Shown here is a 33-nucleotide RNA, a member of the family "DUF805b RNA". By type it is a cis-regulatory element. The base pairs follow the family's consensus structure, which is taken from published work.
Nucleotides: 033
Base pairs, nucleotide, nucleotide: 002021003020004019005018010032011031012030
Number, partner (000 for none) and nucleotide at each position: 001000a002021g003020a004019g005018c006000g007000g008000a009000a010032c011031c012030c013000g014000a015000a016000a017000a018005g019004c020003u021002u022000g023000u024000a025000g026000a027000g028000u029000a030012g031011g032010g033000a